RNA sequence: UUUUGACAAAGGCAAACUUAUUGAAAAGUAAGGACGCAAAGCCACGGACCUAAGGAUGAUCUAUGGUAGCCGGGUUACCGAA
Numbered sequence: 001u002u003u004u005g006a007c008a009a010a011g012g013c014a015a016a017c018u019u020a021u022u023g024a025a026a027a028g029u030a031a032g033g034a035c036g037c038a039a040a041g042c043c044a045c046g047g048a049c050c051u052a053a054g055g056a057u058g059a060u061c062u063a064u065g066g067u068a069g070c071c072g073g074g075u076u077a078c079c080g081a082a
Stems, first nucleotide, its partner, number of pairs: 012037002017032006040076004045072003048067003055061002
Record summary
Rfam assigns this 82-nucleotide RNA sequence from Heyndrickxia shackletonii to the family "c-di-GMP-I riboswitch aptamer". Gene Ontology term of the family: cyclic-di-GMP binding. The organism belongs to Heyndrickxia, within Bacteria.